[Rfam]
RNA: Small nucleolar SNORD12/SNORD106
RNA sequence: GCUGGUGCGGGUGAUGAUGGUUCUUUCCCCGUCAGAGCGACAGUGUUGAUUUCUCGCUGCUCAAGCCAGACCGUGUCUGAUGCACCAGC
Dot-bracket structure: (((((((((.......................................................................)))))))))